[Rfam]
RNA sequence: ACCGCCACGGACGGUGGUGGUUCCAAACAGAAGCGACGUUUUAAAGCAAAGUAGUUUGCAAAGUUUUAAAACUCGCAGGUGUAAUUUUGCCAUGGACGGAAAAAUUACACCGACU
Numbered sequence: 001a002c003c004g005c006c007a008c009g010g011a012c013g014g015u016g017g018u019g020g021u022u023c024c025a026a027a028c029a030g031a032a033g034c035g036a037c038g039u040u041u042u043a044a045a046g047c048a049a050a051g052u053a054g055u056u057u058g059c060a061a062a063g064u065u066u067u068a069a070a071a072c073u074c075g076c077a078g079g080u081g082u083a084a085u086u087u088u089g090c091c092a093u094g095g096a097c098g099g100a101a102a103a104a105u106u107a108c109a110c111c112g113a114c115u
Stems, first nucleotide, its partner, number of pairs: 001018006034075003038072010078111011090099002
Rfam assigns this 115-nucleotide RNA from Treponema phagedenis to the family "TD-2 RNA". Lineage of the source: Bacteria > Spirochaetota > Treponematales > Treponemataceae > Treponema.